[Rfam]
RNA: mir-9256 microRNA precursor family
RNA sequence: AUAUACACUGAGUGACCAGAUUAUUAUGAUUUCUGAAUGCAUAAUAAUCUGGCCACUUAGUGUGUGU
Numbered sequence: 001a002u003a004u005a006c007a008c009u010g011a012g013u014g015a016c017c018a019g020a021u022u023a024u025u026a027u028g029a030u031u032u033c034u035g036a037a038u039g040c041a042u043a044a045u046a047a048u049c050u051g052g053c054c055a056c057u058u059a060g061u062g063u064g065u066g067u
Base pairs, nucleotide, nucleotide: 004064005063006062007061008060009059010058011057012056013055014054016052017051019049020048021047022046023045024044025043026042027041028040